RNA sequence: CAAGACAAAGGCAAACCGUUUGAGAAAACGGGGCGCAAAGCUACGGAUCCGUGGGUAACACCGUUUGGUGAGAACCUCAGGAUAGCCGGGCUGCCACGG
Number, nucleotide and partner (000 for none) at each position: 001c099002a000003a000004g095005a000006c000007a000008a000009a000010g000011g036012c035013a000014a000015a000016c031017c030018g029019u028020u027021u026022g000023a000024g000025a000026a021027a020028a019029c018030g017031g016032g000033g000034c085035g012036c011037a000038a000039a092040g091041c090042u089043a000044c088045g087046g086047a083048u082049c081050c000051g000052u000053g000054g000055g000056u000057a000058a000059c000060a000061c000062c000063g000064u000065u000066u000067g000068g000069u000070g000071a000072g000073a000074a000075c000076c000077u000078c000079a000080g000081g049082a048083u047084a000085g034086c046087c045088g044089g042090g041091c040092u039093g000094c000095c004096a000097c000098g000099g001
RNA: c-di-GMP-I-GGC riboswitch aptamer